The family of this 84-nucleotide sequence is "small Cajal body-specific RNA 18". The base pairs follow the family's consensus structure, which was predicted with PFOLD. For this family Rfam cites "Cajal body-specific small nuclear RNAs: a novel class of 2'-O-methylation and pseudouridylation guide RNAs" (Darzacq et al., EMBO J, 2002). The family has 20 seed sequences and 406 matches in Rfam 15.1. Rfam classes the family as a small Cajal body RNA. From the family's description: scaRNAs are a specific class of small nuclear RNAs which localise to the Cajal bodies and guide the modification of RNA polymerase II transcribed spliceosomal RNAs U1, U2, U4, U5 and U12. This C/D box domain U91 (also known as U4-8) was identified by Darzacq and is predicted to guide the 2'O-ribose methylation of U4 snRNA C8. It is one of the family's seed sequences.

RNA sequence: UGGCCAGUGAUGAAGUCACCAUUAGUGCAGUCUGAGUUCUGGGAACCAGGUGAUGGAGUGUGUUCCAAGAAUGGACUGAGGGCC
Numbered sequence: 001u002g003g004c005c006a007g008u009g010a011u012g013a014a015g016u017c018a019c020c021a022u023u024a025g026u027g028c029a030g031u032c033u034g035a036g037u038u039c040u041g042g043g044a045a046c047c048a049g050g051u052g053a054u055g056g057a058g059u060g061u062g063u064u065c066c067a068a069g070a071a072u073g074g075a076c077u078g079a080g081g082g083c084c
Stems, first nucleotide, its partner, number of pairs: 002083001004081002039049004